[Rfam]
Nucleotides: 349
Base pairs, nucleotide, nucleotide: 001345002344003343004342005341006340007339008338009337010336011334012314013313014312015311016310017309018308020047021046023044024043025042026041052332053331054330056329057328058327059326060325061220062219063218064217068251069250070249071248073216074215075214076213077212078092079091080090081089082088093107094105095104096103097102108211109210113209114208115205116204117203129151130150131147132146133145134144135143136142137141159177160176162174163173164172178200179198180197181196182195183194184193185192186191224271225270226269227268233262234261235260236259237258238257242256243255244254245253246252278297279296280295281294282293283292284291285290
Number, partner (000 for none) and nucleotide at each position: 001345u002344a003343a004342g005341u006340a007339g008338a009337a010336u011334a012314a013313a014312u015311g016310a017309u018308c019000g020047c021046g022000g023044c024043u025042g026041c027000a028000a029000u030000u031000c032000c033000g034000a035000a036000a037000g038000g039000a040000a041026g042025c043024a044023g045000g046021u047020g048000a049000g050000g051000a052332a053331a054330g055000u056329c057328c058327g059326g060325g061220c062219u063218u064217c065000a066000u067000a068251g069250g070249g071248c072000a073216g074215g075214a076213u077212g078092c079091c080090g081089g082088a083000u084000a085000a086000c087000g088082u089081c090080c091079g092078g093107u094105g095104g096103a097102g098000g099000u100000g101000a102097c103096u104095c105094c106000a107093a108211g109210g110000a111000u112000a113209g114208u115205g116204c117203a118000a119000c120000a121000g122000a123000a124000a125000u126000g127000a128000a129151c130150c131147g132146c133145c134144c135143c136142g137141u138000c139000a140000u141137g142136c143135g144134g145133g146132g147131u148000a149000a150130g151129g152000g153000u154000g155000g156000a157000a158000g159177g160176g161000c162174a163173g164172u165000g166000u167000a168000a169000g170000a171000g172164a173163c174162u175000a176160c177159c178200g179198u180197u181196c182195g183194u184193c185192u186191g187000g188000u189000a190000a191186c192185a193184g194183g195182c196181g197180g198179a199000g200178c201000c202000a203117u204116g205115u206000a207000a208114a209113c210109c211108c212077c213076a214075u215074c216073c217064g218063a219062a220061g221000c222000a223000a224271g225270a226269c227268c228000g229000a230000a231000u232000a233262g234261a235260a236259a237258g238257c239000g240000a241000u242256a243255g244254g245253c246252c247000g248071g249070c250069c251068c252246g253245g254244c255243c256242u257238g258237c259236u260235u261234u262233c263000a264000g265000g266000u267000g268227g269226g270225u271224c272000g273000c274000u275000a276000g277000a278297a279296a280295u281294u282293g283292c284291c285290g286000g287000c288000g289000a290285c291284g292283g293282c294281a295280a296279u297278u298000c299000a300000a301000g302000a303000u304000a305000g306000a307000u308018g309017a310016u311015c312014a313013u314012u315000c316000a317000c318000g319000a320000c321000a322000u323000a324000a325060c326059c327058c328057g329056g330054c331053u332052u333000a334011u335000c336010g337009u338008u339007c340006u341005g342004c343003u344002u345001a346000g347000u348000a349000u
Overview:
Shown here is a 349-nucleotide RNA from Kineothrix alysoides, a member of the family "Bacterial RNase P class A". The source organism's lineage runs through Bacteria, Bacillati, Bacillota, Lachnospiraceae and Kineothrix. The match comes from Rfam's covariance-model search (317 bits). The family's RNA type in Rfam is ribozyme.